This 130-nucleotide sequence from Bacillus sp. FJAT-27916 belongs to the Rfam family "SAM riboswitch aptamer (S box leader)".
RNA sequence: CUCUUAUCAAGACUCGGUGGAGGGAACAAAGCUCUAUGAAGCCGGGGCAACCUGCAGUUUGAACCGCUAUUAGGUUCACGCAAAGGUGCUAACUUGAUGCAAGGCUAAUAGAAGCCUUGAACGAUGAGAG
Numbered sequence: 001c002u003c004u005u006a007u008c009a010a011g012a013c014u015c016g017g018u019g020g021a022g023g024g025a026a027c028a029a030a031g032c033u034c035u036a037u038g039a040a041g042c043c044g045g046g047g048c049a050a051c052c053u054g055c056a057g058u059u060u061g062a063a064c065c066g067c068u069a070u071u072a073g074g075u076u077c078a079c080g081c082a083a084a085g086g087u088g089c090u091a092a093c094u095u096g097a098u099g100c101a102a103g104g105c106u107a108a109u110a111g112a113a114g115c116c117u118u119g120a121a122c123g124a125u126g127a128g129a130g
Base pairs, nucleotide, nucleotide: 001130002129003128004127005126006125007124008123013045015044016043017042018041022034023033024032029098031095046090047089048088049087051086052085053082054081055080100119101118102117103116104115105114
The family's consensus secondary structure is taken from published work. The family is grouped with related families in Rfam's "SAM clan". The match comes from Rfam's covariance-model search (64 bits).